[Rfam]
Purine riboswitch aptamer: a 102-nucleotide sequence from Salinibacillus xinjiangensis. About the family: Riboswitches are metabolite binding domains within certain messenger RNAs that serve as precision sensors for their corresponding targets. Allosteric rearrangement of mRNA structure is mediated by ligand binding, and this results in modulation of gene expression. A class of riboswitches that selectively recognises guanine and becomes saturated at concentrations as low as 5 nM. In Bacillus subtilis, this mRNA motif is located on at least five separate transcriptional units that together encode 17 genes that are mostly involved in purine transport and purine nucleotide biosynthesis. It has also been shown that some members of this family are specific for adenine instead. Hence this family are termed purine riboswitches.

RNA sequence: CACAAACAAAAUCAUGUUUUUCAUAUAAUCGCGGGGAUAUGGCCUGCAAGUUUCUACCGGACUACCGUAAAUGGUCUGACUAUGGAAAGCGAGUACGGAUGA
Numbered sequence: 001c002a003c004a005a006a007c008a009a010a011a012u013c014a015u016g017u018u019u020u021u022c023a024u025a026u027a028a029u030c031g032c033g034g035g036g037a038u039a040u041g042g043c044c045u046g047c048a049a050g051u052u053u054c055u056a057c058c059g060g061a062c063u064a065c066c067g068u069a070a071a072u073g074g075u076c077u078g079a080c081u082a083u084g085g086a087a088a089g090c091g092a093g094u095a096c097g098g099a100u101g102a
Stems, first nucleotide, its partner, number of pairs: 018088008029049001031047005058078007